Overview
A member of the RNA family "MIR2655 microRNA precursor family" from Trifolium subterraneum, 231 nucleotides long. Lineage of the source: Eukaryota > Embryophyta > Gunneridae > Fabales > Trifolium. Its family is annotated with miRNA-mediated post-transcriptional gene silencing and RISC complex in the Gene Ontology.
RNA sequence: CCCUUAUCUUUUAGAAGUUUCAAGUUGGUCCCUUAUCUUUAUUUUAGGUUUCAAAUUGGUCCCUUCCGUCAAUUUUUUUACUGUUACUGUUAAAAUUGGACACGUGUCAUCUGUCCAAGUGUGCCACGUGUCCAAAUUUAACGGAAAUAGUUAAAAAAUUGACGGAAGGGACCAACUUGAAACCUAAAAUAAAGAUAAGGUACCAACUUGAAACUUUUAAAAGAUAAGGGA
Numbered sequence: 001c002c003c004u005u006a007u008c009u010u011u012u013a014g015a016a017g018u019u020u021c022a023a024g025u026u027g028g029u030c031c032c033u034u035a036u037c038u039u040u041a042u043u044u045u046a047g048g049u050u051u052c053a054a055a056u057u058g059g060u061c062c063c064u065u066c067c068g069u070c071a072a073u074u075u076u077u078u079u080a081c082u083g084u085u086a087c088u089g090u091u092a093a094a095a096u097u098g099g100a101c102a103c104g105u106g107u108c109a110u111c112u113g114u115c116c117a118a119g120u121g122u123g124c125c126a127c128g129u130g131u132c133c134a135a136a137u138u139u140a141a142c143g144g145a146a147a148u149a150g151u152u153a154a155a156a157a158a159u160u161g162a163c164g165g166a167a168g169g170g171a172c173c174a175a176c177u178u179g180a181a182a183c184c185u186a187a188a189a190u191a192a193a194g195a196u197a198a199g200g201u202a203c204c205a206a207c208u209u210g211a212a213a214c215u216u217u218u219a220a221a222a223g224a225u226a227a228g229g230g231a
Stems, first nucleotide, its partner, number of pairs: 002229007023208003027204003031200013045186003